[Rfam]
RNA sequence: CCGACGCGGAUACCCUGGGGUCGCUCUCCCAGGCUCUGUCCGGGUGGCGGCGGGAGCGCAGGGCUCUGCCCCAUGACGUACAGUCCCUUUCCACGGCGUCGGAGAUGAAGCCGGGCCCUGAGUCCACGCCUGCAUAUUCCUACAGCUUCUCAGAGUCCCACGGGCCGUGACUGAGGAGACAAACCAUGCAGGAAACAGUU
Numbered sequence: 001c002c003g004a005c006g007c008g009g010a011u012a013c014c015c016u017g018g019g020g021u022c023g024c025u026c027u028c029c030c031a032g033g034c035u036c037u038g039u040c041c042g043g044g045u046g047g048c049g050g051c052g053g054g055a056g057c058g059c060a061g062g063g064c065u066c067u068g069c070c071c072c073a074u075g076a077c078g079u080a081c082a083g084u085c086c087c088u089u090u091c092c093a094c095g096g097c098g099u100c101g102g103a104g105a106u107g108a109a110g111c112c113g114g115g116c117c118c119u120g121a122g123u124c125c126a127c128g129c130c131u132g133c134a135u136a137u138u139c140c141u142a143c144a145g146c147u148u149c150u151c152a153g154a155g156u157c158c159c160a161c162g163g164g165c166c167g168u169g170a171c172u173g174a175g176g177a178g179a180c181a182a183a184c185c186a187u188g189c190a191g192g193a194a195a196c197a198g199u200u
Stems, first nucleotide, its partner, number of pairs: 001102007008041005014033002017026003044094004052087004056081001058079002061074001129192007146178006155165004
Rfam assigns this 200-nucleotide sequence from Erinaceus europaeus to the family "Small nucleolar RNA SNORA73 family". Pairs were carried over by alignment from the consensus structure, which is taken from published work. Rfam describes the family as follows. U17 (SNORA73A and SNORA73B) also known as E1 belongs to the H/ACA class of small nucleolar RNAs (snoRNAs). Rfam 15.1 lists 2,326 matches to the family in 660 species. Lineage of the source: Eukaryota > Opisthokonta > Dipnotetrapodomorpha > Erinaceidae > Erinaceus.